[Rfam]
Nucleotides: 343
Base pairs, nucleotide, nucleotide: 065269066268067267068266069265071263072262076190077189078188079187080186081185086181087180088179191249192248196244197243198242199241204237205236206235207234208233253322255321256320257319258318259317271308272307273306274305275304276303277302329340330339331338332337
Number, partner (000 for none) and nucleotide at each position: 001000u002000u003000a004000u005000g006000c007000u008000a009000c010000u011000u012000g013000g014000u015000g016000g017000u018000u019000a020000a021000g022000a023000g024000g025000c026000a027000u028000c029000u030000g031000a032000a033000a034000g035000g036000a037000u038000u039000a040000g041000c042000c043000u044000a045000g046000u047000g048000a049000g050000c051000g052000u053000u054000g055000a056000g057000g058000c059000u060000u061000g062000c063000a064000a065269c066268a067267c068266u069265g070000u071263c072262a073000a074000a075000u076190u077189g078188c079187g080186g081185g082000g083000a084000c085000g086181u087180c088179c089000u090000a091000a092000a093000g094000c095000u096000u097000u098000u099000g100000c101000g102000a103000c104000c105000a106000a107000g108000c109000a110000u111000u112000u113000g114000u115000g116000g117000a118000a119000a120000c121000a122000c123000a124000a125000g126000u127000g128000u129000g130000g131000c132000c133000g134000a135000g136000u137000u138000a139000a140000u141000a142000g143000c144000c145000c146000u147000g148000g149000g150000u151000a152000u153000g154000g155000u156000a157000a158000u159000a160000c161000u162000g163000c164000a165000a166000a167000a168000g169000a170000u171000g172000u173000u174000a175000c176000a177000a178000u179088g180087g181086a182000u183000a184000a185081u186080c187079c188078g189077c190076a191249g192248c193000c194000a195000a196244g197243u198242c199241c200000u201000a202000a203000g204237g205236g206235c207234c208233u209000u210000g211000u212000a213000a214000u215000a216000u217000a218000u219000c220000u221000a222000u223000a224000u225000u226000u227000a228000u229000u230000a231000c232000u233208a234207g235206g236205u237204c238000u239000a240000u241199g242198g243197a244196u245000g246000c247000a248192g249191u250000u251000c252000a253322c254000a255321g256320a257319c258318u259317a260000a261000a262072u263071g264000g265069c266068a267067g268066u269065g270000g271308g272307u273306g274305u275304g276303u277302a278000u279000u280000g281000a282000g283000u284000u285000g286000g287000g288000a289000a290000u291000u292000a293000a294000u295000c296000u297000g298000a299000c300000u301000c302277u303276a304275c305274a306273u307272g308271c309000u310000u311000a312000a313000g314000a315000u316000a317259u318258a319257g320256u321255c322253g323000a324000u325000c326000c327000u328000g329340c330339c331338g332337u333000g334000a335000a336000a337332g338331c339330g340329g341000a342000c343000u
Rfam assigns this 343-nucleotide sequence from Rhizoctonia solani to the family "Group I catalytic intron".
Rfam's curators write: Group I catalytic introns are large self-splicing ribozymes.
Taxonomically the source falls in Rhizoctonia solani AG-3 (Eukaryota, Ceratobasidiaceae, Rhizoctonia, Rhizoctonia solani).
For this family Rfam cites "Self-splicing of group I introns" (Cech, Annu Rev Biochem, 1990).